The record is a 134-nucleotide sequence from Motiliproteus coralliicola, which matches "RtT RNA" in Rfam. NCBI's taxonomy places the organism under Bacteria, Gammaproteobacteria, Oceanospirillales, Oceanospirillaceae, Motiliproteus. The family's RNA type in Rfam is cis-regulatory element. From the family's description: This family represents a bacterial cis-regulatory element known as RtT RNA. The exact function of RtT is unknown although it is thought that it may be involved in changing the cellular response in relation to amino acid starvation. Its family is annotated with cellular response to amino acid starvation in the Gene Ontology. On this family, see Bosl and Kersten, Nucleic Acids Res 1991: "A novel RNA product of the tyrT operon of Escherichia coli".

RNA sequence: GAUGUGAGUAUUGUUUGGCAGAUGAGAACUGCCGAAGGCAGUCGAGCCGAGCGAAGCGAGACCACAUCGGAGCCUGCGACGAUAGCCCCGAAGGGGAAGGCGCGUAGCGACGUAUAAUCUGCCUAGUCCUACCA
Number, nucleotide and partner (000 for none) at each position: 001g000002a000003u000004g000005u000006g000007a000008g000009u000010a000011u000012u000013g000014u000015u125016u000017g123018g122019c121020a120021g119022a000023u117024g000025a000026g000027a000028a000029c000030u000031g000032c000033c095034g000035a000036a000037g000038g000039c000040a000041g000042u091043c090044g089045a000046g000047c000048c058049g057050a000051g000052c000053g000054a000055a000056g000057c049058g048059a000060g000061a000062c000063c000064a000065c085066a083067u082068c081069g080070g000071a000072g000073c000074c000075u000076g000077c000078g000079a000080c069081g068082a067083u066084a000085g065086c000087c000088c000089c044090g043091a042092a000093g000094g000095g033096g000097a000098a000099g000100g000101c000102g000103c000104g000105u000106a000107g000108c000109g000110a000111c000112g000113u000114a000115u000116a000117a023118u000119c021120u020121g019122c018123c017124u000125a015126g000127u000128c000129c000130u000131a000132c000133c000134a000